[Rfam]
RNA: Plastid-psbA-4 3UTR RNA
Organism: Papaver nudicaule
RNA sequence: AUAAUGAAGGAGCAAUAACGACCCUAUUAUUUUAUCAAGAUGGUUGGUAUUGCUCCUUCAA
Numbered sequence: 001a002u003a004a005u006g007a008a009g010g011a012g013c014a015a016u017a018a019c020g021a022c023c024c025u026a027u028u029a030u031u032u033u034a035u036c037a038a039g040a041u042g043g044u045u046g047g048u049a050u051u052g053c054u055c056c057u058u059c060a061a
Stems, first nucleotide, its partner, number of pairs: 006059012021044002025040001027038002
Dot-bracket structure: .....((((((((((((...((..(.((........)).)..))...))))))))))))..